[Rfam]
RNA: mir-24 microRNA precursor family
Organism: Salmo salar
RNA sequence: UGCCUACUGAGCUGAUAACAGUACUACUGAAUGACUGGCUCAGUUCAGCAGGAAC
Numbered sequence: 001u002g003c004c005u006a007c008u009g010a011g012c013u014g015a016u017a018a019c020a021g022u023a024c025u026a027c028u029g030a031a032u033g034a035c036u037g038g039c040u041c042a043g044u045u046c047a048g049c050a051g052g053a054a055c
Base pairs, nucleotide, nucleotide: 001054003052004051005050007048008047009046010045011044012043013042014041015040019037020036021035022034